[Rfam]
RNA: tRNA
RNA sequence: AGGGGUAUAGUUCAAUGGUAGAACAGCGGUCUCCAAAACCGUUGAUGUGGGUUCAACUCCUGCUACCCCUG
Numbered sequence: 001a002g003g004g005g006u007a008u009a010g011u012u013c014a015a016u017g018g019u020a021g022a023a024c025a026g027c028g029g030u031c032u033c034c035a036a037a038a039c040c041g042u043u044g045a046u047g048u049g050g051g052u053u054c055a056a057c058u059c060c061u062g063c064u065a066c067c068c069c070u071g
Base pairs, nucleotide, nucleotide: 001070002069003068004067005066006065007064010024011023012022013021026042027041028040029039030038047063048062049061050060051059